[Rfam]
RNA sequence: CAUACGGCUUAAGCCUCGAUUAAGCUUUCUCGAAUAUUACUGUGCAUGUCCAUCUUCAUGGACGUGAGUGGCUCCUGUCCACUCGUUUGACGCCUCCCUGUUAUCUACUUUGAGCCGCCGUUUUCGGCGGCUCCUUUUUU
Dot-bracket structure: ((((.((......)).....((..(......)..))....))))...((((........))))..((((((.......))))))....((((......)))).........(((((((((....))))))))).......
Numbered sequence: 001c002a003u004a005c006g007g008c009u010u011a012a013g014c015c016u017c018g019a020u021u022a023a024g025c026u027u028u029c030u031c032g033a034a035u036a037u038u039a040c041u042g043u044g045c046a047u048g049u050c051c052a053u054c055u056u057c058a059u060g061g062a063c064g065u066g067a068g069u070g071g072c073u074c075c076u077g078u079c080c081a082c083u084c085g086u087u088u089g090a091c092g093c094c095u096c097c098c099u100g101u102u103a104u105c106u107a108c109u110u111u112g113a114g115c116c117g118c119c120g121u122u123u124u125c126g127g128c129g130g131c132u133c134c135u136u137u138u139u140u
Stems, first nucleotide, its partner, number of pairs: 001044004006015002021036002025032001048063004066084006089102004112133009

Alphaproteobacterial sRNA BjrC1505: a 140-nucleotide RNA from Pseudolabrys taiwanensis. The source organism's lineage runs through Bacteria, Pseudomonadota, Alphaproteobacteria, Hyphomicrobiales and Pseudolabrys. A reference for the family is Madhugiri et al. (2012), "Small RNAs of the Bradyrhizobium/Rhodopseudomonas lineage and their analysis", RNA Biol. A search with the family's covariance model found it, with a score of 106 bits.